Background:
The family of this 101-nucleotide RNA sequence from Caenorhabditis briggsae is "mir-36 microRNA precursor family". Gene Ontology terms of the family: miRNA-mediated post-transcriptional gene silencing and RISC complex. The family has 46 seed sequences and 199 matches in Rfam 15.1.
RNA sequence: UUCAAUGGUCUGGAUCGGACCUCCACCGAUUUUUUCUGCGGUGAUACUCCAAUGGGACGAUUAUCACCGGGUGAAAACUGGUAGAGGUCCGAUCCAGUCAG
Numbered sequence: 001u002u003c004a005a006u007g008g009u010c011u012g013g014a015u016c017g018g019a020c021c022u023c024c025a026c027c028g029a030u031u032u033u034u035u036c037u038g039c040g041g042u043g044a045u046a047c048u049c050c051a052a053u054g055g056g057a058c059g060a061u062u063a064u065c066a067c068c069g070g071g072u073g074a075a076a077a078c079u080g081g082u083a084g085a086g087g088u089c090c091g092a093u094c095c096a097g098u099c100a101g
Stems, first nucleotide, its partner, number of pairs: 016091007025082004030077005036071002039069001041067006